[Rfam]
RNA sequence: AAUAAUUAUCAAGAAUCUCAAGACAAGAGAUAGCAACCUGCAAUAACGAGCAAGGUGCUAAAUAGAUAAGCCAAUUACUUGGAACACAUGUUAACUCA
Numbered sequence: 001a002a003u004a005a006u007u008a009u010c011a012a013g014a015a016u017c018u019c020a021a022g023a024c025a026a027g028a029g030a031u032a033g034c035a036a037c038c039u040g041c042a043a044u045a046a047c048g049a050g051c052a053a054g055g056u057g058c059u060a061a062a063u064a065g066a067u068a069a070g071c072c073a074a075u076u077a078c079u080u081g082g083a084a085c086a087c088a089u090g091u092u093a094a095c096u097c098a
Stems, first nucleotide, its partner, number of pairs: 006069005015031005032059003037055003040051002044094001046092001071082004
RNA: SAM-I/IV (S-adenosyl methionine) riboswitch aptamer